[Rfam]
RNA: HNH endonuclease-associated RNA and ORF (HEARO) RNA
RNA sequence: GUCAAUGACCGCCGGUCGGAGACCGGAGGCUUGGGAGAGCCUGGCUCUUGCAAGCCGAUUGACCAGACCAGGUUCUUGAGAGAGCGUUGCCGAGCUUCUCUGCGUCACCGCUCCCGCUGAGAGAACGUCGAUGCUUCCAAGUGUUCAAGAUCGUACUGGCGGGUGCUGCCCCAGCCUGCCACCCUACAACGGCUUCUUUAAAACAGGUGAUGAGGUCAGUCCCAGUGAGAAGCCGAAAGUACCGAGAGGCAUCAUGGUCGAGGGGAAGAGAAU
Numbered sequence: 001g002u003c004a005a006u007g008a009c010c011g012c013c014g015g016u017c018g019g020a021g022a023c024c025g026g027a028g029g030c031u032u033g034g035g036a037g038a039g040c041c042u043g044g045c046u047c048u049u050g051c052a053a054g055c056c057g058a059u060u061g062a063c064c065a066g067a068c069c070a071g072g073u074u075c076u077u078g079a080g081a082g083a084g085c086g087u088u089g090c091c092g093a094g095c096u097u098c099u100c101u102g103c104g105u106c107a108c109c110g111c112u113c114c115c116g117c118u119g120a121g122a123g124a125a126c127g128u129c130g131a132u133g134c135u136u137c138c139a140a141g142u143g144u145u146c147a148a149g150a151u152c153g154u155a156c157u158g159g160c161g162g163g164u165g166c167u168g169c170c171c172c173a174g175c176c177u178g179c180c181a182c183c184c185u186a187c188a189a190c191g192g193c194u195u196c197u198u199u200a201a202a203a204c205a206g207g208u209g210a211u212g213a214g215g216u217c218a219g220u221c222c223c224a225g226u227g228a229g230a231a232g233c234c235g236a237a238a239g240u241a242c243c244g245a246g247a248g249g250c251a252u253c254a255u256g257g258u259c260g261a262g263g264g265g266a267a268g269a270g271a272a273u
Stems, first nucleotide, its partner, number of pairs: 001063006010029001012026002016022002030054004066259005072126006130253008153187002157181008166268002169265004190235009203226002206223002209221002211218002
Dot-bracket structure: ((((((...(.((..((...))..))..)((((.................))))...))))))..(((((.((((((...........................................))))))...((((((((...............((..((((((((.[[.[[[[.))))))))....))..(((((((((....((.((.((((....)).)))).)))))))))))..........)))))))).)))))..]]]].]].....